[Rfam]
RNA sequence: GGUAUGAUGGCGUUUGCCAGCGAAGUUGCCCACUUAACCUCGCGGCGUACGUUGCAUAACGUGCAAAAAUACUUUUCAGAAUGCC
Numbered sequence: 001g002g003u004a005u006g007a008u009g010g011c012g013u014u015u016g017c018c019a020g021c022g023a024a025g026u027u028g029c030c031c032a033c034u035u036a037a038c039c040u041c042g043c044g045g046c047g048u049a050c051g052u053u054g055c056a057u058a059a060c061g062u063g064c065a066a067a068a069a070u071a072c073u074u075u076u077c078a079g080a081a082u083g084c085c
Stems, first nucleotide, its partner, number of pairs: 016046003020043004025038003047064006